[Rfam]
RNA: gltS RNA
RNA sequence: UAUCACCAAGGAUUGUUUUUCUCGCAAUACUUUUCCUGCGAGAUACGGAAAGGAAUCAAGACCAGUCAACCUCGACUGGUGGCGAUAAUAAAUAUAAAGGACAAG
Numbered sequence: 001u002a003u004c005a006c007c008a009a010g011g012a013u014u015g016u017u018u019u020u021c022u023c024g025c026a027a028u029a030c031u032u033u034u035c036c037u038g039c040g041a042g043a044u045a046c047g048g049a050a051a052g053g054a055a056u057c058a059a060g061a062c063c064a065g066u067c068a069a070c071c072u073c074g075a076c077u078g079g080u081g082g083c084g085a086u087a088a089u090a091a092a093u094a095u096a097a098a099g100g101a102c103a104a105g
Stems, first nucleotide, its partner, number of pairs: 020043007061080007
Dot-bracket structure: ...................(((((((..........))))))).................(((((((......))))))).........................